The family of this 79-nucleotide sequence from Pelodiscus sinensis is "mir-16 microRNA precursor family".
A reference for the family is Calin et al. (2002), "Frequent deletions and down-regulation of micro- RNA genes miR15 and miR16 at 13q14 in chronic lymphocytic leukemia", Proc Natl Acad Sci U S A.
Rfam 15.1 lists 4,705 matches to the family in 758 species.

RNA sequence: CCCUGCCAACAGCAGCACAGAAGUAGAGAUAGCAUGGUACAGUAUUACCAUCCUUAUUUCUGUGCUGCUUCUGGCAGUG
Numbered sequence: 001c002c003c004u005g006c007c008a009a010c011a012g013c014a015g016c017a018c019a020g021a022a023g024u025a026g027a028g029a030u031a032g033c034a035u036g037g038u039a040c041a042g043u044a045u046u047a048c049c050a051u052c053c054u055u056a057u058u059u060c061u062g063u064g065c066u067g068c069u070u071c072u073g074g075c076a077g078u079g
Base pairs, nucleotide, nucleotide: 001079003077005075006074007073011069012068013067014066015065016064017063018062020059022058023057024056025055026054028052029051